[Rfam]
RNA: Soft rot Enterobacteriaceae Rev 39 5'UTR
RNA sequence: AAGUAUUGUCAGAAGACGAAAAACUGUGAUACCUCUUUAGGUAUUCGUUCGAUUAGAGAUAGCAGAACACCCUGAAUAUGAACAAACUCGUCCAACUCCUCAGCCUAGUCGUGAUUAGCGUGGUCGUGAUUAUUAUCACACCGUGCGGGGCUGCACUUGGACGAAGAAAGGCUUAAAAAUCAAGCCUGAAUCAAACGAGAACCCCCGCACCGAAAGGUCCGGGGGUUUUUUUUGGCAUAAAGAAACAGUGAGCAGGGGGAGUAAUGGUUUUUAGCAUAAAAUUCUGUAAUUCCGCCGGAG
Dot-bracket structure: ......(((((...............))))).....(((((..(((..((.......)).....)))...)))))...........((.((......(.(.((((.((.(((.....))).(((...(((....)))..)))((.((((......)))).))((.....(((((.......)))))....)).....((((((((((.(((....))).)))))))))).)).))).).).).....)).)).(..((((...(((........)))....)))).).............